[Rfam]
The family of this 97-nucleotide sequence from Cynara cardunculus is "Plastid-rps12 3UTR RNA". About the family: Plastid rpl20 is a non-coding RNA (ncRNA) recognised in plastids. It was found in the three prime untranslated region (3UTR) of rps12 gene, its 3UTR location sugest a role in transcript maduration. On this family, see Richter et al., Plant Commun 2023: "Retrograde signaling in plants: A critical review focusing on the GUN pathway and beyond".
RNA sequence: GGUUUCUAUUGGUGUAAAUACACUCACCUCAAUUCUAGAUGAGAAGCAAUUCUCUAUUGGUAGCAAAUGGUUAUGCAUUAAGUGGAGGAUAAAUUAG
Numbered sequence: 001g002g003u004u005u006c007u008a009u010u011g012g013u014g015u016a017a018a019u020a021c022a023c024u025c026a027c028c029u030c031a032a033u034u035c036u037a038g039a040u041g042a043g044a045a046g047c048a049a050u051u052c053u054c055u056a057u058u059g060g061u062a063g064c065a066a067a068u069g070g071u072u073a074u075g076c077a078u079u080a081a082g083u084g085g086a087g088g089a090u091a092a093a094u095u096a097g
Stems, first nucleotide, its partner, number of pairs: 010022002052087004056078002060074005
By type it is a cis-regulatory element. Rfam 15.1 lists 1,710 matches to the family in 1,426 species.